A member of the RNA family "Phenylalanine leader peptide" from Gossypium barbadense, 124 nucleotides long.

RNA sequence: AAAAAAACUUUUAAAGUUUUUUUUUUUUUUUUUUUUUUCAAAAAUUUUUACUUUUCGGGGGAAAAAAAAAAAAAAAAAAUAAACCUUUUUUUACCCCCCCCCUUCCCGGGGGGGGGGAUUUUUU
Numbered sequence: 001a002a003a004a005a006a007a008c009u010u011u012u013a014a015a016g017u018u019u020u021u022u023u024u025u026u027u028u029u030u031u032u033u034u035u036u037u038u039c040a041a042a043a044a045u046u047u048u049u050a051c052u053u054u055u056c057g058g059g060g061g062a063a064a065a066a067a068a069a070a071a072a073a074a075a076a077a078a079a080u081a082a083a084c085c086u087u088u089u090u091u092u093a094c095c096c097c098c099c100c101c102c103u104u105c106c107c108g109g110g111g112g113g114g115g116g117g118a119u120u121u122u123u124u
Base pairs, nucleotide, nucleotide: 016084017083018082019081021079022078023077024076025075026074027073028072029071030070031069032068033067034066036064037063038062039061042048043047051057094117095116096115097114098113099112100111101110102109

On this family, see Zurawski et al., Proc Natl Acad Sci U S A 1978: "Nucleotide sequence of the leader region of the phenylalanine operon of Escherichia coli". NCBI's taxonomy places the organism under Eukaryota, Viridiplantae, Magnoliopsida, Pentapetalae, Gossypium. Gene Ontology term of the family: cellular amino acid metabolic process. Pairs were carried over by alignment from the consensus structure, which was predicted with CMfinder.